Guanidine-I riboswitch aptamer: a 99-nucleotide sequence from Tetzosporium hominis. The organism belongs to Tetzosporium, within Bacteria. A search with the family's covariance model found it, with a score of 89 bits.
[Rfam]
RNA sequence: ACGAAAGUUUUCUAGGGUUCCGGAAGCUAGCGCUUUGACUGGUCCGAGAGAAAACGCAUGGCAUGGCCAUGUACACGGAGGGACAAAAGCCUGGGAGAU
Numbered sequence: 001a002c003g004a005a006a007g008u009u010u011u012c013u014a015g016g017g018u019u020c021c022g023g024a025a026g027c028u029a030g031c032g033c034u035u036u037g038a039c040u041g042g043u044c045c046g047a048g049a050g051a052a053a054a055c056g057c058a059u060g061g062c063a064u065g066g067c068c069a070u071g072u073a074c075a076c077g078g079a080g081g082g083a084c085a086a087a088a089g090c091c092u093g094g095g096a097g098a099u
Base pairs, nucleotide, nucleotide: 007055008054009053010052011051012050015045016044020042021041022039023036024035025034026033027032056072057071058070059069060068061067062066074094076097080092081091082090